[Rfam]
RNA: c-di-AMP riboswitch aptamer (ydaO/yuaA leader)
Organism: Tissierella sp. P1
RNA sequence: UCAUCAUAACUGCUGAAUCCUAGAUAUUAUAGGUACGGAGGAACCAUUUAAGGGGUUAAUCCACAUCACUGUGGUAGGGAGCCUUCUAUCCCGAACCCGUCAGCUAACUUCGGAAGCCUUAUUACGGAAGGAGUG
Numbered sequence: 001u002c003a004u005c006a007u008a009a010c011u012g013c014u015g016a017a018u019c020c021u022a023g024a025u026a027u028u029a030u031a032g033g034u035a036c037g038g039a040g041g042a043a044c045c046a047u048u049u050a051a052g053g054g055g056u057u058a059a060u061c062c063a064c065a066u067c068a069c070u071g072u073g074g075u076a077g078g079g080a081g082c083c084u085u086c087u088a089u090c091c092c093g094a095a096c097c098c099g100u101c102a103g104c105u106a107a108c109u110u111c112g113g114a115a116g117c118c119u120u121a122u123u124a125c126g127g128a129a130g131g132a133g134u135g
Base pairs, nucleotide, nucleotide: 012117013116014115019033020032021031022030036112037111038110039109040108045052053098054097055096061074062073063072064071077092078091079090080089